The family of this 129-nucleotide RNA sequence from Aquarana catesbeiana is "Small nucleolar RNA SNORA40". Its family is annotated with nucleolus and RNA processing in the Gene Ontology. The literature on the family includes a 1997 paper in J Mol Biol by Ofengand and Bakin, "Mapping to nucleotide resolution of pseudouridine residues in large subunit ribosomal RNAs from representative eukaryotes, prokaryotes, archaebacteria, mitochondria and chloroplasts". The family's RNA type in Rfam is H/ACA-box small nucleolar RNA. The snoRNA ACA 40 belongs to the H/ACA family of snoRNAs and guides the pseudouridylation of 28S rRNA subunit at position U4565. NB This family has a high threshold value to exclude a large number of closely related sequences that do not appear to have conserved H and ACA boxes, and may be pseudogenes. A search with the family's covariance model found it, with a score of 74 bits.
RNA sequence: AGCACUUGCUAUGCGUGUCUGUCCUAUCUAUAGAUACAGACUGAUGCAAGUGCUUAAAAUGAAACCUUCUUUUGCAACCCACAACUUGGUUGAUUUGUAUGAGUUGUGUUACUUACAGGAAGGGACAUC
Number, nucleotide and partner (000 for none) at each position: 001a054002g053003c052004a051005c050006u049007u048008g047009c046010u000011a000012u044013g000014c000015g041016u040017g000018u038019c000020u036021g035022u034023c000024c000025u000026a000027u032028c000029u000030a000031u000032a027033g000034a022035u021036a020037c000038a018039g000040a016041c015042u000043g000044a012045u000046g009047c008048a007049a006050g005051u004052g003053c002054u001055u000056a000057a000058a000059a000060u000061g000062a000063a000064a000065c000066c124067u123068u122069c000070u120071u119072u118073u117074g116075c000076a000077a000078c000079c000080c108081a107082c106083a105084a104085c103086u102087u101088g000089g100090u099091u000092g000093a000094u000095u000096u000097g000098u000099a090100u089101g087102a086103g085104u084105u083106g082107u081108g080109u000110u000111a000112c000113u000114u000115a000116c074117a073118g072119g071120a070121a000122g068123g067124g066125a000126c000127a000128u000129c000